[Rfam]
RNA sequence: UCUAUACGGGUCUGUGGUUGAAAGUCGAGGCUAGUCGCAGGCAAAACGAUCCACAUAAGCAGCCCAAAGGGUUGUGAGCAUGGUGCGGCUUAGGUGUAAGUCCUGCCGGUAUAACCGAGAGAGGUAGUAGUGGGGAGUCUCAGACUUAUGAGCGAACCCUCCAGCAGGCGAGUGUGGGGGCAAAGACCAGGUCAGCCGUAUAAG
Numbered sequence: 001u002c003u004a005u006a007c008g009g010g011u012c013u014g015u016g017g018u019u020g021a022a023a024g025u026c027g028a029g030g031c032u033a034g035u036c037g038c039a040g041g042c043a044a045a046a047c048g049a050u051c052c053a054c055a056u057a058a059g060c061a062g063c064c065c066a067a068a069g070g071g072u073u074g075u076g077a078g079c080a081u082g083g084u085g086c087g088g089c090u091u092a093g094g095u096g097u098a099a100g101u102c103c104u105g106c107c108g109g110u111a112u113a114a115c116c117g118a119g120a121g122a123g124g125u126a127g128u129a130g131u132g133g134g135g136a137g138u139c140u141c142a143g144a145c146u147u148a149u150g151a152g153c154g155a156a157c158c159c160u161c162c163a164g165c166a167g168g169c170g171a172g173u174g175u176g177g178g179g180g181c182a183a184a185g186a187c188c189a190g191g192u193c194a195g196c197c198g199u200a201u202a203a204g
Base pairs, nucleotide, nucleotide: 001204003202004201005200006199007198008197009196012195013194014193015189016188017187018186019185028175030173031041033090034089035088036087037086038085039084050083051082058075061072063070064069081182102168103167104166105165106164107117108116109115121161122160123159124158130153131152136146137145138144

A member of the RNA family "raiA RNA", 204 nucleotides long. It is one of the family's seed sequences. Rfam classes the family as a riboswitch.